[Rfam]
Nucleotides: 135
Base pairs, nucleotide, nucleotide: 010047012039013038014037017034018033019032020031021030050073051072052071053070054069055068056067057066098129099128100127101126102125103124104123105122106121107120108119109118110117
Number, partner (000 for none) and nucleotide at each position: 001000u002000c003000a004000g005000c006000a007000c008000c009000a010047u011000c012039a013038u014037c015000a016000u017034c018033c019032u020031g021030a022000c023000u024000a025000g026000u027000c028000u029000u030021u031020c032019g033018g034017g035000a036000g037014g038013a039012u040000a041000c042000g043000c044000c045000u046000c047010a048000c049000c050073c051072u052071g053070g054069a055068a056067g057066a058000c059000g060000c061000a062000u063000u064000u065000u066057u067056c068055u069054u070053c071052c072051a073050g074000u075000g076000g077000u078000c079000a080000u081000a082000a083000c084000g085000g086000a087000a088000u089000a090000u091000c092000u093000c094000a095000u096000u097000c098129a099128g100127a101126c102125c103124c104123u105122c106121g107120g108119a109118a110117g111000a112000a113000a114000u115000u116000u117110c118109u119108u120107u121106c122105g123104a124103g125102g126101g127100u128099u129098u130000u131000u132000u133000a134000a135000u